[Rfam]
RNA sequence: UUGCAGUUGCCACGCUGACGUGCCCCGUCGCAUAAGGGGUCAGCGUGGUGACGGUGUGCGGUCCGCCCUCCGGGGCGGGUGCCGCUCGGCGUCCGGUGUCCGGGAGUUACCGCUCCCGGACACCGGAC
Numbered sequence: 001u002u003g004c005a006g007u008u009g010c011c012a013c014g015c016u017g018a019c020g021u022g023c024c025c026c027g028u029c030g031c032a033u034a035a036g037g038g039g040u041c042a043g044c045g046u047g048g049u050g051a052c053g054g055u056g057u058g059c060g061g062u063c064c065g066c067c068c069u070c071c072g073g074g075g076c077g078g079g080u081g082c083c084g085c086u087c088g089g090c091g092u093c094c095g096g097u098g099u100c101c102g103g104g105a106g107u108u109a110c111c112g113c114u115c116c117c118g119g120a121c122a123c124c125g126g127a128c
Stems, first nucleotide, its partner, number of pairs: 002089001006052002010048009023037002054085003059081002062079007094125014
Dot-bracket structure: .(...((..(((((((((....((...........))..)))))))))..)).(((..((.(((((((....))))))))).)))...)....((((((((((((((....))))))))))))))...
The family of this 128-nucleotide RNA sequence from Streptomyces albus is "Streptomyces RNA 6925". The base pairs follow the family's consensus structure. The literature on the family includes a 2011 paper in RNA Biol by Vockenhuber et al., "Deep sequencing-based identification of small non-coding RNAs in Streptomyces coelicolor". It scores 86 bits against the family's covariance model. Identified by deep sequencing of transcriptome at the end of exponential growth phase. Sequencing size consistent with northern blot size. Streptomyces specific. Rfam classes the family as a small RNA. Lineage of the source: Bacteria > Actinomycetota > Actinomycetes > Streptomyces > Streptomyces albus subsp. albus.